[Rfam]
Nucleotides: 063
Stems, first nucleotide, its partner, number of pairs: 001061005009050005021045003029038003
Number, partner (000 for none) and nucleotide at each position: 001061c002060c003059u004058g005057u006000g007000g008000a009050g010049u011048g012047u013046c014000a015000a016000a017000c018000a019000a020000a021045c022044c023043g024000u025000a026000g027000u028000a029038g030037a031036u032000a033000u034000a035000u036031a037030u038029c039000g040000a041000g042000g043023c044022g045021g046013g047012a048011c049010a050009c051000g052000u053000u054000g055000a056000a057005g058004c059003a060002g061001g062000a063000a
This 63-nucleotide RNA sequence from Petrotoga mobilis belongs to the Rfam family "RAGATH-18 RNA".
It is one of the family's seed sequences.